A member of the RNA family "FMN riboswitch aptamer (RFN element)" from Neptunicella marina, 160 nucleotides long. The organism belongs to Neptunicella, within Bacteria. Pairs were carried over by alignment from the consensus structure, which is taken from published work.
[Rfam]
RNA sequence: UUUUAUUCUCAGGGCGGGGUGAAAUUCCCCACCGGCGGUGUUUUGUUCGUUACGAAUAAUCAGCCCGCGAGCGCCUGAACUUUCAGGGUCAGCAGAUCUGGUGCGAUAUCUUUAUUUAAUCCAGAGCCGACGGUUAUAGUCCGGAUGGGAGAGCAUAAAA
Numbered sequence: 001u002u003u004u005a006u007u008c009u010c011a012g013g014g015c016g017g018g019g020u021g022a023a024a025u026u027c028c029c030c031a032c033c034g035g036c037g038g039u040g041u042u043u044u045g046u047u048c049g050u051u052a053c054g055a056a057u058a059a060u061c062a063g064c065c066c067g068c069g070a071g072c073g074c075c076u077g078a079a080c081u082u083u084c085a086g087g088g089u090c091a092g093c094a095g096a097u098c099u100g101g102u103g104c105g106a107u108a109u110c111u112u113u114a115u116u117u118a119a120u121c122c123a124g125a126g127c128c129g130a131c132g133g134u135u136a137u138a139g140u141c142c143g144g145a146u147g148g149g150a151g152a153g154c155a156u157a158a159a160a
Stems, first nucleotide, its partner, number of pairs: 003158004008153003017029003031140002033129002035068004063127002071093002097125005131143003